[Rfam]
RNA sequence: GCUGUCGGUUAGUUGCUGCUUUAAAGAUAUAUUUAAAGUAGAGGAAAGUCCAUGCUUGCACUUGCUGGAAUGCAAGUAGUGUUUGUGUAAAUCAAAGCGAUAAGAUUUAGGAUGUGAUAGCCAUAACGACAUAACUAGUCUAAGGUUAAUACUAUGAUGAUGUUUUGAAAGUGCCACAGAGACGAGCUUGGUGAAAACCAGGUAUGAAACGCGGUAAACUCCACAAGCAAGAAACCUAAAUUUUGGUAAGGGAAUGUUGCUUUAAGAACAAAUAAUUAAAGUAAUGACAGCAAUUGCUGUAGAUAAAUAACUGACUUUAAAACAGAACAUGGCUUAUUGAC
Numbered sequence: 001g002c003u004g005u006c007g008g009u010u011a012g013u014u015g016c017u018g019c020u021u022u023a024a025a026g027a028u029a030u031a032u033u034u035a036a037a038g039u040a041g042a043g044g045a046a047a048g049u050c051c052a053u054g055c056u057u058g059c060a061c062u063u064g065c066u067g068g069a070a071u072g073c074a075a076g077u078a079g080u081g082u083u084u085g086u087g088u089a090a091a092u093c094a095a096a097g098c099g100a101u102a103a104g105a106u107u108u109a110g111g112a113u114g115u116g117a118u119a120g121c122c123a124u125a126a127c128g129a130c131a132u133a134a135c136u137a138g139u140c141u142a143a144g145g146u147u148a149a150u151a152c153u154a155u156g157a158u159g160a161u162g163u164u165u166u167g168a169a170a171g172u173g174c175c176a177c178a179g180a181g182a183c184g185a186g187c188u189u190g191g192u193g194a195a196a197a198c199c200a201g202g203u204a205u206g207a208a209a210c211g212c213g214g215u216a217a218a219c220u221c222c223a224c225a226a227g228c229a230a231g232a233a234a235c236c237u238a239a240a241u242u243u244u245g246g247u248a249a250g251g252g253a254a255u256g257u258u259g260c261u262u263u264a265a266g267a268a269c270a271a272a273u274a275a276u277u278a279a280a281g282u283a284a285u286g287a288c289a290g291c292a293a294u295u296g297c298u299g300u301a302g303a304u305a306a307a308u309a310a311c312u313g314a315c316u317u318u319a320a321a322a323c324a325g326a327a328c329a330u331g332g333c334u335u336a337u338u339g340a341c
Stems, first nucleotide, its partner, number of pairs: 004341003007337001008315007016041009046335003050332005055231005060077006083226005088109006110127001112124003116121001128221002131165001136159002139157002144153003171219002173215003189200004235251003255286007287300005

This 341-nucleotide RNA from Mycoplasmoides genitalium belongs to the Rfam family "Bacterial RNase P class B". It is annotated as a ribozyme.